[Rfam]
RNA: Histone 3' UTR stem-loop
RNA sequence: CCAACGGCCCUCUUUAGGGCCACAAAUGAACAAAAUCAAAUUUUG
Numbered sequence: 001c002c003a004a005c006g007g008c009c010c011u012c013u014u015u016a017g018g019g020c021c022a023c024a025a026a027u028g029a030a031c032a033a034a035a036u037c038a039a040a041u042u043u044u045g
Stems, first nucleotide, its partner, number of pairs: 006021006